[Rfam]
RNA sequence: GGAGACUGGCGGCGGACGUAUCCCUCGCCAACCGGGUCAGGUCCGGAAGGAAGCAGCCCUAACGAUCAGGACGCGGGUCGUUCGUCAGUCUCCUCU
Numbered sequence: 001g002g003a004g005a006c007u008g009g010c011g012g013c014g015g016a017c018g019u020a021u022c023c024c025u026c027g028c029c030a031a032c033c034g035g036g037u038c039a040g041g042u043c044c045g046g047a048a049g050g051a052a053g054c055a056g057c058c059c060u061a062a063c064g065a066u067c068a069g070g071a072c073g074c075g076g077g078u079c080g081u082u083c084g085u086c087a088g089u090c091u092c093c094u095c096u
Stems, first nucleotide, its partner, number of pairs: 004090005009083001011082004017075003021071002025065003034059004042051003

Rfam assigns this 96-nucleotide RNA from Hyphomicrobium album to the family "Bacterial small signal recognition particle RNA". Lineage of the source: Bacteria > Pseudomonadati > Pseudomonadota > Alphaproteobacteria > Hyphomicrobium. Rfam links the family to the GO terms signal recognition particle, plasma membrane targeting and SRP-dependent cotranslational protein targeting to membrane, signal sequence recognition.